RNA sequence: GGGUAACGUCACUGUACCUUUAUCAUUGUGGCAGCCGGUCACGCGGUGGGAUAUUUAUCCUUAGGCGCAAGUCGCCAAGCGUGUGGAGAUGGCGAGGGGUUUGAGACCCG
Numbered sequence: 001g002g003g004u005a006a007c008g009u010c011a012c013u014g015u016a017c018c019u020u021u022a023u024c025a026u027u028g029u030g031g032c033a034g035c036c037g038g039u040c041a042c043g044c045g046g047u048g049g050g051a052u053a054u055u056u057a058u059c060c061u062u063a064g065g066c067g068c069a070a071g072u073c074g075c076c077a078a079g080c081g082u083g084u085g086g087a088g089a090u091g092g093c094g095a096g097g098g099g100u101u102u103g104a105g106a107c108c109c110g
Stems, first nucleotide, its partner, number of pairs: 001019004008032005034093004039086007048061005064076004097109004
The family of this 110-nucleotide RNA from a Paenibacillaceae bacterium is "epsC RNA". By type it is a cis-regulatory element.